[Rfam]
RNA sequence: ACGCCGAAAGGAGGUGAUCGGGUACAUGAGUGAAUCCCGGACACGCGAGGUGGCUGCUGGCUAGCGGCCCGUCACCACAUCCUGUGCGGUGCCGGACCAGUGCGUGAAAGAUGCGUGCGGCCGGCCCAAUCCCAAGCAGUCACCCGACCCGCGAGCUGCCGGUACGUCCGGCCGGCUUCUCCGCCGUCAGGCGGAGGGACCCAGCUCGCGGGUCGUCUGCU
Numbered sequence: 001a002c003g004c005c006g007a008a009a010g011g012a013g014g015u016g017a018u019c020g021g022g023u024a025c026a027u028g029a030g031u032g033a034a035u036c037c038c039g040g041a042c043a044c045g046c047g048a049g050g051u052g053g054c055u056g057c058u059g060g061c062u063a064g065c066g067g068c069c070c071g072u073c074a075c076c077a078c079a080u081c082c083u084g085u086g087c088g089g090u091g092c093c094g095g096a097c098c099a100g101u102g103c104g105u106g107a108a109a110g111a112u113g114c115g116u117g118c119g120g121c122c123g124g125c126c127c128a129a130u131c132c133c134a135a136g137c138a139g140u141c142a143c144c145c146g147a148c149c150c151g152c153g154a155g156c157u158g159c160c161g162g163u164a165c166g167u168c169c170g171g172c173c174g175g176c177u178u179c180u181c182c183g184c185c186g187u188c189a190g191g192c193g194g195a196g197g198g199a200c201c202c203a204g205c206u207c208g209c210g211g212g213u214c215g216u217c218u219g220c221u
Base pairs, nucleotide, nucleotide: 013058014057015056016055018053059126060125061124062123064121065120067118068117070115071114072113145215146214147213148212149211150210151209152208153207154206155205156204157203158176159175160174161173162172163171
A member of the RNA family "Actinobacteria sRNA Ms_IGR-5" from Streptomyces sp. GMY02, 221 nucleotides long.
The family's RNA type in Rfam is small RNA.
The organism belongs to Streptomyces, within Bacteria.
The match comes from Rfam's covariance-model search (85 bits).